[Rfam]
RNA sequence: UUGUUUUCAAUGAUGAUUUUCGAGUUUUACCUUGGGACACCUAUGAAAUGCCUUGAUUAGUGUAAAGUUAUGUUUUUCUGAUAACA
Numbered sequence: 001u002u003g004u005u006u007u008c009a010a011u012g013a014u015g016a017u018u019u020u021c022g023a024g025u026u027u028u029a030c031c032u033u034g035g036g037a038c039a040c041c042u043a044u045g046a047a048a049u050g051c052c053u054u055g056a057u058u059a060g061u062g063u064a065a066a067g068u069u070a071u072g073u074u075u076u077u078c079u080g081a082u083a084a085c086a
Stems, first nucleotide, its partner, number of pairs: 002086004
RNA: Small nucleolar RNA Me28S-Gm3113
Organism: Drosophila melanogaster